[Rfam]
RNA sequence: UGCCUUUGUGUUGCCCAUUCAUUCCUGUCCAGAAUGAAUGUGGUGUCAAAAAAGGCAAACAGGAAUUCUUGUUCAAACUGUUUAAGGAGCUGGUUAUUUACCUUUCUCCUCCCUGUUUUUGCAAGGACAAAA
Numbered sequence: 001u002g003c004c005u006u007u008g009u010g011u012u013g014c015c016c017a018u019u020c021a022u023u024c025c026u027g028u029c030c031a032g033a034a035u036g037a038a039u040g041u042g043g044u045g046u047c048a049a050a051a052a053a054g055g056c057a058a059a060c061a062g063g064a065a066u067u068c069u070u071g072u073u074c075a076a077a078c079u080g081u082u083u084a085a086g087g088a089g090c091u092g093g094u095u096a097u098u099u100a101c102c103u104u105u106c107u108c109c110u111c112c113c114u115g116u117u118u119u120u121g122c123a124a125g126g127a128c129a130a131a132a
Stems, first nucleotide, its partner, number of pairs: 002056006009048002012045004016040008068125004074121004085114003088110002092102002
RNA: Small nucleolar RNA SNORA13
Organism: Thalassarche chlororhynchos